[Rfam]
RNA sequence: UGAUCAUGCGCUGAGCAAUUAACUGCUCCAACGUCAUGAUUGGAGUUAUUAUCCUAUGAUUCCUAAGUUUUAAUUCUAUGGUGAUA
Numbered sequence: 001u002g003a004u005c006a007u008g009c010g011c012u013g014a015g016c017a018a019u020u021a022a023c024u025g026c027u028c029c030a031a032c033g034u035c036a037u038g039a040u041u042g043g044a045g046u047u048a049u050u051a052u053c054c055u056a057u058g059a060u061u062c063c064u065a066a067g068u069u070u071u072a073a074u075u076c077u078a079u080g081g082u083g084a085u086a
Base pairs, nucleotide, nucleotide: 001086002085004084005083006082042054043053044052

Rfam assigns this 86-nucleotide sequence from Miscanthus lutarioriparius to the family "Small nucleolar RNA Z199". The family's RNA type in Rfam is C/D-box small nucleolar RNA. About the family: snoZ199 is a C/D box small nucleolar RNA, which acts as a methylation guide RNA for sites on 18S and 25S rRNA. Rice snoZ199 is reported to be homologous to Arabidopsis snoR13. A search with the family's covariance model found it, with a score of 49 bits. Pairs were carried over by alignment from the consensus structure, which was predicted with PFOLD.